[Rfam]
RNA sequence: AUAAUGAUACUUCGGUAAUUCGCCGCUCGGUCAUAAUGAAGACGGAGUACAUCUCAAGGUGUAAUGU
Numbered sequence: 001a002u003a004a005u006g007a008u009a010c011u012u013c014g015g016u017a018a019u020u021c022g023c024c025g026c027u028c029g030g031u032c033a034u035a036a037u038g039a040a041g042a043c044g045g046a047g048u049a050c051a052u053c054u055c056a057a058g059g060u061g062u063a064a065u066g067u
Stems, first nucleotide, its partner, number of pairs: 012064001013025004026047003030043003048063006
Dot-bracket structure: ...........(((((.....))))(((.(((........))).)))((((((....)))))))...
About this RNA: The record is a 67-nucleotide sequence from Lachnospiraceae bacterium MD329, which matches "pemK RNA" in Rfam. NCBI's taxonomy places the organism under Bacteria, Bacillati, Bacillota, Clostridia, Lachnospiraceae.